Eukaryotic large subunit ribosomal RNA: a 391-nucleotide part of an RNA from Massarina eburnea.
[Rfam]
RNA sequence: AACCUCGCCCUAAUAGUAAUACUACUUAGUACGAGAGGAACUGCAGUUUUAGAUAAUUAGUUUUUACAGCUGUCUAACUAGGCAUUGCUGCGAAGCUACUAUCUACUAGAUUAUAGCUAAACGCCUCUAAGUUAGAAUCUAUGCUAGAACAGGGUGAAUUCCGCCUGCACACUAGAGUUAGAUACGAAUAGGCCUUUAGCCUAGAACCUUAGCAGGCUAGCGAUAGUAGUCCUAUUAAAAUUAGGGCUGCUAGCUAGCGUAUUGCAAUUUAACUGUGCGCAGGAUUAAAUCCUUUACAGAUAACUUAGUUAUCUAGCUAGGUUGUGUAAGUAGUUAAGUAGCCUUGUUGUUACGAGCUACUAAGCGUAAGCCCGCUGCUAGCUUAGUUAAA
Numbered sequence: 001a002a003c004c005u006c007g008c009c010c011u012a013a014u015a016g017u018a019a020u021a022c023u024a025c026u027u028a029g030u031a032c033g034a035g036a037g038g039a040a041c042u043g044c045a046g047u048u049u050u051a052g053a054u055a056a057u058u059a060g061u062u063u064u065u066a067c068a069g070c071u072g073u074c075u076a077a078c079u080a081g082g083c084a085u086u087g088c089u090g091c092g093a094a095g096c097u098a099c100u101a102u103c104u105a106c107u108a109g110a111u112u113a114u115a116g117c118u119a120a121a122c123g124c125c126u127c128u129a130a131g132u133u134a135g136a137a138u139c140u141a142u143g144c145u146a147g148a149a150c151a152g153g154g155u156g157a158a159u160u161c162c163g164c165c166u167g168c169a170c171a172c173u174a175g176a177g178u179u180a181g182a183u184a185c186g187a188a189u190a191g192g193c194c195u196u197u198a199g200c201c202u203a204g205a206a207c208c209u210u211a212g213c214a215g216g217c218u219a220g221c222g223a224u225a226g227u228a229g230u231c232c233u234a235u236u237a238a239a240a241u242u243a244g245g246g247c248u249g250c251u252a253g254c255u256a257g258c259g260u261a262u263u264g265c266a267a268u269u270u271a272a273c274u275g276u277g278c279g280c281a282g283g284a285u286u287a288a289a290u291c292c293u294u295u296a297c298a299g300a301u302a303a304c305u306u307a308g309u310u311a312u313c314u315a316g317c318u319a320g321g322u323u324g325u326g327u328a329a330g331u332a333g334u335u336a337a338g339u340a341g342c343c344u345u346g347u348u349g350u351u352a353c354g355a356g357c358u359a360c361u362a363a364g365c366g367u368a369a370g371c372c373c374g375c376u377g378c379u380a381g382c383u384u385a386g387u388u389a390a391a
Stems, first nucleotide, its partner, number of pairs: 005157007014146004019049001021047003025043001050105005058098003065092001067090003071084005107141003114134005164283005170277001288388003292308002313381005320372002323366002330360004335356001338353005
The source organism's lineage runs through Eukaryota, Fungi, saccharomyceta, Massarina and Massarina eburnea.